This 128-nucleotide sequence from Myotis myotis belongs to the Rfam family "Small nucleolar RNA SNORA24". Rfam classes the family as an H/ACA-box small nucleolar RNA. The source organism's lineage runs through Eukaryota, Bilateria, Dipnotetrapodomorpha, Vespertilionidae and Myotis.
RNA sequence: CUCCAUGCGUCUUUGGGGCCUGUCAACUGUGGCCGUCUCCCUUCCUAGCCGUGGAAGAGCAUUUUCUUGUUUAUUGGCAAAGCUGUCACAUAACUGGUAUCGGAUUCUGACUUGCACAAGUAACAUUC
Numbered sequence: 001c002u003c004c005a006u007g008c009g010u011c012u013u014u015g016g017g018g019c020c021u022g023u024c025a026a027c028u029g030u031g032g033c034c035g036u037c038u039c040c041c042u043u044c045c046u047a048g049c050c051g052u053g054g055a056a057g058a059g060c061a062u063u064u065u066c067u068u069g070u071u072u073a074u075u076g077g078c079a080a081a082g083c084u085g086u087c088a089c090a091u092a093a094c095u096g097g098u099a100u101c102g103g104a105u106u107c108u109g110a111c112u113u114g115c116a117c118a119a120g121u122a123a124c125a126u127u128c
Stems, first nucleotide, its partner, number of pairs: 002055006015041004020035001022033003068125004074119003077115004083103003088098002
The match comes from Rfam's covariance-model search (128 bits).